[Rfam]
A member of the RNA family "FMN riboswitch aptamer (RFN element)" from Pontimonas salivibrio, 130 nucleotides long. Pairs were carried over by alignment from the consensus structure, which is taken from published work.
Nucleotides: 130
Stems, first nucleotide, its partner, number of pairs: 003128001005126006016028003030110002032099002034048004043097002052074002079095005101113003
Number, partner (000 for none) and nucleotide at each position: 001000a002000c003128a004000a005126u006125g007124c008123u009122c010121c011000g012000g013000g014000g015000u016028c017027g018026g019000u020000g021000a022000a023000a024000a025000u026018c027017c028016g029000a030110g031109c032099c033098g034048g035047c036046g037045g038000u039000g040000a041000a042000a043097g044096u045037c046036c047035g048034c049000g050000a051000c052074c053073c054000g055000a056000c057000u058000g059000g060000c061000c062000a063000c064000g065000u066000g067000c068000u069000a070000g071000g072000c073053g074052g075000u076000u077000g078000a079095u080094u081093c082092g083091g084000u085000g086000a087000a088000a089000u090000u091083c092082c093081g094080a095079a096044a097043c098033c099032g100000a101113c102112g103111g104000u105000g106000a107000a108000a109031g110030u111103c112102c113101g114000g115000a116000u117000g118000g119000g120000a121010g122009g123008a124007g125006c126005a127000a128003u129000a130000a